[Rfam]
RNA sequence: UGACGGGGGCCCGCACAAGCGGUGGAGCAUGUGGUUUAAUUCGAUGAUACGCGAGGAACCUUACCUAGGCUAGAAUGCGCGUGACAGGAGCAGAGAUGCUCCCUCCCUUCGGGGCACAAAGCAAGGUGCUGCAUGGCUGUCGUCAGCUCGUGCCGUGAGGUGUUGGGUUAAGUCCCGCAACGAGCGCAACCCCUAUCUUCAGUUGCCAGCACAUUAUGGUGGGGACUCUGGAGAGACUGCCUUCGCAAGAAGCGAGGAAGGCGGGGACGACGUCAAGUCAUCAUGGCCCUUACGCCUAGGGCUACACACGUGCUACAAUGGCGCAUACAGAGGGUAGCCAGCCAGCGAUGGUGAGCCAAUCCCAAAAAGUGCGUCUCAGUUCGGAUCGGAGUCUGCAACUCGACUCCGUGAAGCCGGAAUCGCUAGUAAUCGCGUAUCAGCAACGACGCGGUGAAUACGUUCCCGGGCCUUGUACACACCGCCCGUCAAGCCAUGGAAGUCAGGGAGACCUGAAGCCGGUGACCGUCAAAGGAGCCGUCUAGGGUAAAACUGGUAACUGGGGCUAAGUCGUAACAAGG
Numbered sequence: 001u002g003a004c005g006g007g008g009g010c011c012c013g014c015a016c017a018a019g020c021g022g023u024g025g026a027g028c029a030u031g032u033g034g035u036u037u038a039a040u041u042c043g044a045u046g047a048u049a050c051g052c053g054a055g056g057a058a059c060c061u062u063a064c065c066u067a068g069g070c071u072a073g074a075a076u077g078c079g080c081g082u083g084a085c086a087g088g089a090g091c092a093g094a095g096a097u098g099c100u101c102c103c104u105c106c107c108u109u110c111g112g113g114g115c116a117c118a119a120a121g122c123a124a125g126g127u128g129c130u131g132c133a134u135g136g137c138u139g140u141c142g143u144c145a146g147c148u149c150g151u152g153c154c155g156u157g158a159g160g161u162g163u164u165g166g167g168u169u170a171a172g173u174c175c176c177g178c179a180a181c182g183a184g185c186g187c188a189a190c191c192c193c194u195a196u197c198u199u200c201a202g203u204u205g206c207c208a209g210c211a212c213a214u215u216a217u218g219g220u221g222g223g224g225a226c227u228c229u230g231g232a233g234a235g236a237c238u239g240c241c242u243u244c245g246c247a248a249g250a251a252g253c254g255a256g257g258a259a260g261g262c263g264g265g266g267a268c269g270a271c272g273u274c275a276a277g278u279c280a281u282c283a284u285g286g287c288c289c290u291u292a293c294g295c296c297u298a299g300g301g302c303u304a305c306a307c308a309c310g311u312g313c314u315a316c317a318a319u320g321g322c323g324c325a326u327a328c329a330g331a332g333g334g335u336a337g338c339c340a341g342c343c344a345g346c347g348a349u350g351g352u353g354a355g356c357c358a359a360u361c362c363c364a365a366a367a368a369g370u371g372c373g374u375c376u377c378a379g380u381u382c383g384g385a386u387c388g389g390a391g392u393c394u395g396c397a398a399c400u401c402g403a404c405u406c407c408g409u410g411a412a413g414c415c416g417g418a419a420u421c422g423c424u425a426g427u428a429a430u431c432g433c434g435u436a437u438c439a440g441c442a443a444c445g446a447c448g449c450g451g452u453g454a455a456u457a458c459g460u461u462c463c464c465g466g467g468c469c470u471u472g473u474a475c476a477c478a479c480c481g482c483c484c485g486u487c488a489a490g491c492c493a494u495g496g497a498a499g500u501c502a503g504g505g506a507g508a509c510c511u512g513a514a515g516c517c518g519g520u521g522a523c524c525g526u527c528a529a530a531g532g533a534g535c536c537g538u539c540u541a542g543g544g545u546a547a548a549a550c551u552g553g554u555a556a557c558u559g560g561g562g563c564u565a566a567g568u569c570g571u572a573a574c575a576a577g578g
Stems, first nucleotide, its partner, number of pairs: 001476002003473003007470007015460002019423005024316001026314008034305002040055004064300007076123003081117003087102006105114003125289002128287004134283002136278003139274001141272002146185006152161003164177004191266004196234007206223002210221003237257002240254001241252004320375007332363003337356002342351003382413001387408007429452007479577001481574001484570002489564004494559003499554005508545003515539001517537004523532002
Overview:
A member of the RNA family "Bacterial small subunit ribosomal RNA" from uncultured bacterium zdt-44a23, 578 nucleotides of a longer RNA. The family's consensus secondary structure is taken from published work.